[Rfam]
Nucleotides: 176
Stems, first nucleotide, its partner, number of pairs: 006086003013075001019039004024033001040069005047063003099169002102165002114156002118152004125142004
Number, partner (000 for none) and nucleotide at each position: 001000u002000u003000u004000c005000u006086c007085a008084u009000c010000u011000a012000u013075a014000u015000a016000u017000c018000g019039c020038c021037g022036a023000u024033a025000c026000g027000u028000c029000u030000g031000a032000a033024u034000u035000u036022u037021u038020g039019g040069c041068a042067g043066c044065u045000u046000c047063c048062g049061u050000c051000c052000a053000u054000u055000u056000c057000a058000a059000u060000g061049a062048c063047g064000a065044a066043g067042u068041u069040g070000u071000u072000c073000u074000u075013u076000c077000g078000c079000a080000u081000c082000g083000a084008g085007u086006g087000a088000a089000g090000a091000g092000u093000a094000a095000c096000c097000u098000g099169a100168c101000c102165c103164g104000u105000u106000g107000c108000u109000g110000g111000g112000c113000a114156c115155c116000u117000g118152g119151a120150u121149u122000u123000g124000a125142a126141a127140g128139g129000u130000c131000g132000u133000u134000c135000c136000g137000a138000u139128c140127c141126u142125u143000u144000c145000g146000g147000a148000u149121a150120a151119u152118u153000u154000g155115g156114g157000a158000a159000u160000c161000a162000g163000c164103u165102g166000u167000g168100g169099u170000c171000a172000c173000a174000u175000c176000a